About this RNA: The record is a 254-nucleotide RNA, which matches "ARRPOF RNA" in Rfam. Rfam's curators put it in the seed alignment.
RNA sequence: AAAAAUCUUACUAACUAUAUUAGUUUUACCAUUUGUAACAACUGUAAAAGCUGUUACAGUCGCUCUGCUCGAAGCGAUGUAGCAUUGGAAACAAUGGUACUAUGAAUUGUAGCGGGUGUGUGGCAACCCCAAAUAGUCACGGUGGUACUCUGUGCGGGUAUUCUAACAACGAUAUAAUUUAGAAAGUAAGCUAAAUCGGGACUUCUGGGGCGGAGUACAGAAGAAUAGACGAACUAGUCUAUGUUAGAAUAAGU
Numbered sequence: 001a002a003a004a005a006u007c008u009u010a011c012u013a014a015c016u017a018u019a020u021u022a023g024u025u026u027u028a029c030c031a032u033u034u035g036u037a038a039c040a041a042c043u044g045u046a047a048a049a050g051c052u053g054u055u056a057c058a059g060u061c062g063c064u065c066u067g068c069u070c071g072a073a074g075c076g077a078u079g080u081a082g083c084a085u086u087g088g089a090a091a092c093a094a095u096g097g098u099a100c101u102a103u104g105a106a107u108u109g110u111a112g113c114g115g116g117u118g119u120g121u122g123g124c125a126a127c128c129c130c131a132a133a134u135a136g137u138c139a140c141g142g143u144g145g146u147a148c149u150c151u152g153u154g155c156g157g158g159u160a161u162u163c164u165a166a167c168a169a170c171g172a173u174a175u176a177a178u179u180u181a182g183a184a185a186g187u188a189a190g191c192u193a194a195a196u197c198g199g200g201a202c203u204u205c206u207g208g209g210g211c212g213g214a215g216u217a218c219a220g221a222a223g224a225a226u227a228g229a230c231g232a233a234c235u236a237g238u239c240u241a242u243g244u245u246a247g248a249a250u251a252a253g254u
Base pairs, nucleotide, nucleotide: 007190008189009188010187011186012185034058035057036056037055038054039053040052042050060077061076062075063074064073079100080099081098083096084095085094086093087092114129115128116127117126120140121139122138123137124136147216148215149214150213151212152211159251160250161249162248163247164246165245166244167243170198171197172196178195179194180193181192182191202223203222204221205220206219207218225242226241227240228239229238230237